About this RNA:
The family of this 72-nucleotide sequence from Krasilnikovia cinnamomea is "6C RNA". It is annotated as a cis-regulatory element. Lineage of the source: Bacteria > Bacillati > Actinomycetota > Actinomycetes > Krasilnikovia.
[Rfam]
RNA sequence: GCGGAUUCGGCUCGACCCCCCCGGAGCCGAAUCUUUGACGACCCCCGUCGCCCCCGGCGGGGGUCGUCAUCC
Numbered sequence: 001g002c003g004g005a006u007u008c009g010g011c012u013c014g015a016c017c018c019c020c021c022c023g024g025a026g027c028c029g030a031a032u033c034u035u036u037g038a039c040g041a042c043c044c045c046c047g048u049c050g051c052c053c054c055c056g057g058c059g060g061g062g063g064u065c066g067u068c069a070u071c072c
Stems, first nucleotide, its partner, number of pairs: 003035001004033010037068013